[Rfam]
Shown here is a 109-nucleotide sequence from Hwanghaeella grinnelliae, a member of the family "Guanidine-I riboswitch aptamer". Rfam 15.1 lists 1,509 matches to the family in 1,281 species.

RNA sequence: AAAGAUUGCGGCUAGGGUUCCGAUCGUUUUGUAAGCGAUGUCUGGUCCGAGAGCCGACGCCUGGUCCACUAUCAGACCGGGUCCACGGCGGGAUAAAAGCCCGGGAGGU
Numbered sequence: 001a002a003a004g005a006u007u008g009c010g011g012c013u014a015g016g017g018u019u020c021c022g023a024u025c026g027u028u029u030u031g032u033a034a035g036c037g038a039u040g041u042c043u044g045g046u047c048c049g050a051g052a053g054c055c056g057a058c059g060c061c062u063g064g065u066c067c068a069c070u071a072u073c074a075g076a077c078c079g080g081g082u083c084c085a086c087g088g089c090g091g092g093a094u095a096a097a098a099g100c101c102c103g104g105g106a107g108g109u
Stems, first nucleotide, its partner, number of pairs: 009056004015048002020045002022042001023039006059082008084104001086107001090102003